[Rfam]
Shown here is a 67-nucleotide sequence from Melipona bicolor, a member of the family "mir-2 microRNA precursor family". Lineage of the source: Eukaryota > Altocrustacea > Pterygota > Apidae > Melipona. A reference for the family is Ambros (2001), "microRNAs: tiny regulators with great potential", Cell. Rfam links the family to the GO terms RISC complex and miRNA-mediated post-transcriptional gene silencing. The match comes from Rfam's covariance-model search (55 bits).
RNA sequence: CCUCCUAUCAGAGUGGUUGUGAUGUGGUGACUUGGACUCGUAUCACAGCCAGCUUUGAUAAGCGGAA
Numbered sequence: 001c002c003u004c005c006u007a008u009c010a011g012a013g014u015g016g017u018u019g020u021g022a023u024g025u026g027g028u029g030a031c032u033u034g035g036a037c038u039c040g041u042a043u044c045a046c047a048g049c050c051a052g053c054u055u056u057g058a059u060a061a062g063c064g065g066a067a
Stems, first nucleotide, its partner, number of pairs: 006060008014051012